[Rfam]
RNA: Small nucleolar RNA snoR109
Organism: Panicum virgatum
RNA sequence: CGGCUGUAGCCAUAUUAACGAGGAAGAAAAACUGGUCGGCUUGCCCUUUUCAAUGGGUUAUCCGCUUACCGACCUUCCAAUAUCU
Dot-bracket structure: .....................(((((.......(((.((...((((........))))..)).))).......))))).......